This 98-nucleotide RNA sequence from Amycolatopsis sp. CA-230715 belongs to the Rfam family "Glycine riboswitch aptamer". It scores 55 bits against the family's covariance model.
RNA sequence: CGAGCCGGAGCGGGAGAGCCCCCGCCGCCUUGGCGGACGGGGCACCGAAGGAGCAAACUCCCCACCAAUCUCUCAGGUACAACUACCGCUUCAGGCCA
Numbered sequence: 001c002g003a004g005c006c007g008g009a010g011c012g013g014g015a016g017a018g019c020c021c022c023c024g025c026c027g028c029c030u031u032g033g034c035g036g037a038c039g040g041g042g043c044a045c046c047g048a049a050g051g052a053g054c055a056a057a058c059u060c061c062c063c064a065c066c067a068a069u070c071u072c073u074c075a076g077g078u079a080c081a082a083c084u085a086c087c088g089c090u091u092c093a094g095g096c097c098a
Stems, first nucleotide, its partner, number of pairs: 007092007020042004044078003047074002051072003